RNA sequence: ACCUGUUGCGGGCGGCAAGAGCGGCGCCCGCAAUACCAGACAGACACCGUGCCACGGGAAGAUCGAGGCACUUCAGGGCGUU
Numbered sequence: 001a002c003c004u005g006u007u008g009c010g011g012g013c014g015g016c017a018a019g020a021g022c023g024g025c026g027c028c029c030g031c032a033a034u035a036c037c038a039g040a041c042a043g044a045c046a047c048c049g050u051g052c053c054a055c056g057g058g059a060a061g062a063u064c065g066a067g068g069c070a071c072u073u074c075a076g077g078g079c080g081u082u
Base pairs, nucleotide, nucleotide: 004035005034006033007032008031009030010029011028012027013026014025016023049071050070051069052068053067055065056064
Rfam assigns this 82-nucleotide sequence from Streptomyces jeddahensis to the family "nrdJ RNA". It scores 87 bits against the family's covariance model. The base pairs follow the family's consensus structure, which is taken from published work.